[Rfam]
RNA sequence: ACCGGGCUGAGUGGCUUCAGCUUGUAACCGCAAGUUUCUGGCGGGGGAGGGUUCUUUAAGGGAGAGGUCACUAUUGUGAGGGAUCUAUUCACGGCAUGUGGAUGGGGGGCCCAUUCCAAACCAGGAGUGAACAUUGUGGAAUAUCCGGAAGGAAAGCCACGAGGUUCUUAAAGAGAGGUGCAACGCCUCAGGCUGGUCACAGAGCAGGGAAAAGCUUCCGCUCUUGGUAGUGGAAGGAUCACAACCCAGAAUGCCGAUGGUGUCUCACAAUGGAAUAUGGCGACUUUCGAAGGGAAUCUGC
Dot-bracket structure: .((((((((((....))))))))....(((...........)))))..(((((((((..(((((..(((....((((((((...(((((...(((((.(...((((..(.((.(((((.(((((((((((((.((((((..(.(((....))).).)))))).))))(...)..(((((......(((....(((....)))....)))....))))).)))))))))..)))))))....)..))))).))))))))))..))))))))..)...)).....)))))..)))))))))..